RNA sequence: GGCCUUUCAUUUUCGCCCGCGACUUCCUAUAUUCAUCGAGCCGGCUUGUCCGGCUAUGGCGAUAAACAGGCGAUGAAAUAAGCCGUUCGGACCCGGGGGCGGUACCCGGCGCCUCCACCAAAAACCGCUUUCGAGAGCGGUUUCUGAUGGGGGCGAAAUAGGAUCGACGAAGGUGUAAAGAUCGUGCUUUCGCCCGGCAUUGUACCACCGUUAUCGGGCUAACCUAGUAGUUGCAAACGACAACUAUGCGGAAGCACGUCUCGCCGCUUAAUGCGGUGCGAUAGCUUCAAAUCAAGUCCUAGGGGUUCGCACUUCUAGGCGGGGUUCGGAGGUACCUGGCAACAGAAACCUCCACU
Number, nucleotide and partner (000 for none) at each position: 001g000002g000003c000004c000005u000006u000007u000008c000009a000010u000011u000012u000013u000014c000015g000016c000017c000018c000019g000020c000021g000022a000023c000024u000025u000026c000027c000028u000029a000030u000031a000032u000033u000034c000035a000036u000037c000038g000039a000040g054041c053042c052043g051044g050045c000046u000047u000048g000049u000050c044051c043052g042053g041054c040055u000056a000057u000058g194059g193060c192061g191062a190063u000064a000065a000066a000067c000068a000069g000070g185071c184072g183073a182074u181075g000076a000077a000078a000079u000080a000081a000082g000083c173084c172085g000086u000087u170088c169089g168090g000091a000092c000093c109094c108095g107096g106097g105098g000099g000100c000101g000102g000103u000104a000105c097106c096107c095108g094109g093110c155111g154112c153113c152114u151115c150116c149117a000118c000119c000120a000121a000122a000123a000124a000125c000126c000127g000128c000129u000130u000131u000132c000133g000134a000135g000136a000137g000138c000139g000140g000141u000142u000143u000144c000145u000146g000147a000148u000149g116150g115151g114152g113153g112154c111155g110156a000157a000158a000159u000160a000161g000162g000163a000164u000165c000166g000167a000168c089169g088170a087171a000172g084173g083174u000175g000176u000177a000178a000179a000180g000181a074182u073183c072184g071185u070186g000187c000188u000189u000190u062191c061192g060193c059194c058195c210196g209197g208198c000199a000200u221201u000202g219203u000204a000205c217206c216207a000208c197209c196210g195211u000212u000213a000214u000215c000216g206217g205218g000219c202220u000221a200222a000223c000224c000225u000226a000227g000228u000229a000230g000231u000232u000233g000234c000235a000236a000237a000238c000239g000240a000241c000242a000243a000244c000245u000246a000247u000248g000249c000250g000251g000252a000253a000254g000255c000256a000257c000258g000259u000260c000261u000262c000263g000264c000265c000266g000267c000268u000269u000270a000271a000272u000273g000274c000275g000276g000277u000278g000279c000280g000281a000282u000283a000284g000285c000286u000287u000288c000289a000290a000291a000292u000293c000294a000295a000296g000297u000298c000299c000300u000301a000302g000303g000304g000305g000306u000307u000308c000309g000310c000311a000312c000313u000314u000315c000316u000317a000318g000319g000320c000321g000322g337323g336324g335325u334326u000327c000328g353329g352330a351331g350332g349333u348334a325335c324336c323337u322338g000339g000340c000341a000342a000343c000344a000345g000346a000347a000348a333349c332350c331351u330352c329353c328354a000355c000356u000
The family of this 356-nucleotide RNA from Allomesorhizobium alhagi is "Alphaproteobacteria transfer-messenger RNA". Gene Ontology term of the family: RNA catabolic process. Taxonomically the source falls in Allomesorhizobium alhagi (Bacteria, Pseudomonadota, Alphaproteobacteria, Phyllobacteriaceae).